[Rfam]
mir-315 microRNA precursor family: an 82-nucleotide sequence from Saccoglossus kowalevskii. The organism belongs to Saccoglossus, within Eukaryota.
RNA sequence: CUCUGGCGCCGUUUUGAUUGUUGCUCAGAAAGCCUUAUGCUUCUGGUCGGCUUUCGGGUAACAAUUAAAAAUAGCGAGAGAG
Dot-bracket structure: ((((..(....(((((((.(((((((.(((((((..............)))))))))))))).))))))).....)..))))